[Rfam]
Small nucleolar RNA SNORA73 family: a 205-nucleotide sequence from Jaculus jaculus. NCBI's taxonomy places the organism under Eukaryota, Craniata, Mammalia, Dipodinae, Jaculus. A search with the family's covariance model found it, with a score of 140 bits. Rfam describes the family as follows. U17 (SNORA73A and SNORA73B) also known as E1 belongs to the H/ACA class of small nucleolar RNAs (snoRNAs). Vertebrate U17 is intron-encoded and ranges in length from 200-230 nucleotides, longer than most snoRNAs.
RNA sequence: CCAAAGAGAAUACCCCAGGAGGUUAUUCUCCCUGGGCUCUGUUCAAAUGGCAUAGGGGAGCAUAAGGCUCUGCUCCAUGAUGUACAGUCCCAUUCCACAAUGCUGGAUAUGAAGCAGGGCCUUUGAGUCUAUGCCUGCCUAUUCCUGCAUUUUCUCAUAGUUCUGUGGACAAUGAAUGAUGAGACAAACCAUGCAAGAGACAGUC
Dot-bracket structure: (((..(.(((((.(((.((((....))))....)))...)))))...(((.....(((((.((((............)..))).)..))))...)))...)..)))...........................(.(((.(..........(((.((...((((...)))).......)).))).......).))).)........
Numbered sequence: 001c002c003a004a005a006g007a008g009a010a011u012a013c014c015c016c017a018g019g020a021g022g023u024u025a026u027u028c029u030c031c032c033u034g035g036g037c038u039c040u041g042u043u044c045a046a047a048u049g050g051c052a053u054a055g056g057g058g059a060g061c062a063u064a065a066g067g068c069u070c071u072g073c074u075c076c077a078u079g080a081u082g083u084a085c086a087g088u089c090c091c092a093u094u095c096c097a098c099a100a101u102g103c104u105g106g107a108u109a110u111g112a113a114g115c116a117g118g119g120c121c122u123u124u125g126a127g128u129c130u131a132u133g134c135c136u137g138c139c140u141a142u143u144c145c146u147g148c149a150u151u152u153u154c155u156c157a158u159a160g161u162u163c164u165g166u167g168g169a170c171a172a173u174g175a176a177u178g179a180u181g182a183g184a185c186a187a188a189c190c191a192u193g194c195a196a197g198a199g200a201c202a203g204u205c
Stems, first nucleotide, its partner, number of pairs: 001106003006101001008044005014036003018029004048097003056091004060085001062083003065078001134197001136195003140191001151183003155179002160170004